[Rfam]
RNA: Small nucleolar RNA SNORA26
Organism: Salvelinus namaycush
RNA sequence: UUGCCCACUCGUGGCUGUCCGUGUCACAAGUGGCCAUUUCCGGGGGACAGAGCAACCCUCUCUUCAACCUGGGUCAGGGGCUUCACCCCUGGCUCUGGACCUGUUGAGAGGAACAUAA
Numbered sequence: 001u002u003g004c005c006c007a008c009u010c011g012u013g014g015c016u017g018u019c020c021g022u023g024u025c026a027c028a029a030g031u032g033g034c035c036a037u038u039u040c041c042g043g044g045g046g047a048c049a050g051a052g053c054a055a056c057c058c059u060c061u062c063u064u065c066a067a068c069c070u071g072g073g074u075c076a077g078g079g080g081c082u083u084c085a086c087c088c089c090u091g092g093c094u095c096u097g098g099a100c101c102u103g104u105u106g107a108g109a110g111g112a113a114c115a116u117a118a
Stems, first nucleotide, its partner, number of pairs: 002049002005046002008043002014038001016036002019030001058110005069097001071095005077089003